[Rfam]
RNA sequence: UGGGCGGUAUCCAUUUGGAACUGCACCGUAAUACUUAUUAAAAUAGCGGAUCUGCCUUGAUCCAGUUUGGACUAGGACAGAGGG
Numbered sequence: 001u002g003g004g005c006g007g008u009a010u011c012c013a014u015u016u017g018g019a020a021c022u023g024c025a026c027c028g029u030a031a032u033a034c035u036u037a038u039u040a041a042a043a044u045a046g047c048g049g050a051u052c053u054g055c056c057u058u059g060a061u062c063c064a065g066u067u068u069g070g071a072c073u074a075g076g077a078c079a080g081a082g083g084g
Base pairs, nucleotide, nucleotide: 001028002027003026004024005023006022007021008020010019011018052080053079054078055076056075057074059072061071062070063069
Dot-bracket structure: ((((((((.((......))))))).))).......................((((((.(.(((.....)))).))).)))....